[Rfam]
RNA sequence: CAAGUUCCGCAUUAUCUGCCGAAGACAGUAGGUGCCGUAAGGCAUAAGUUGAUAACGCCUACCGAGGGUAUGAGUUUAUAAAAAUUAACUCAAUGAGUUUUAAUAAUUAACUCAAUGAGUUGGUAUAACAAAACUCAGAUUCAUAAAGAAAUUUAUUGAAUCCCUUGCUGUCUCGCAGUAAGGGAUUUUUUUAAAAUCUA
Numbered sequence: 001c002a003a004g005u006u007c008c009g010c011a012u013u014a015u016c017u018g019c020c021g022a023a024g025a026c027a028g029u030a031g032g033u034g035c036c037g038u039a040a041g042g043c044a045u046a047a048g049u050u051g052a053u054a055a056c057g058c059c060u061a062c063c064g065a066g067g068g069u070a071u072g073a074g075u076u077u078a079u080a081a082a083a084a085u086u087a088a089c090u091c092a093a094u095g096a097g098u099u100u101u102a103a104u105a106a107u108u109a110a111c112u113c114a115a116u117g118a119g120u121u122g123g124u125a126u127a128a129c130a131a132a133a134c135u136c137a138g139a140u141u142c143a144u145a146a147a148g149a150a151a152u153u154u155a156u157u158g159a160a161u162c163c164c165u166u167g168c169u170g171u172c173u174c175g176c177a178g179u180a181a182g183g184g185a186u187u188u189u190u191u192u193a194a195a196a197u198c199u200a
Stems, first nucleotide, its partner, number of pairs: 028062006034043003161185010
RNA: Ribosomal protein L10 leader
Organism: Anaerocolumna jejuensis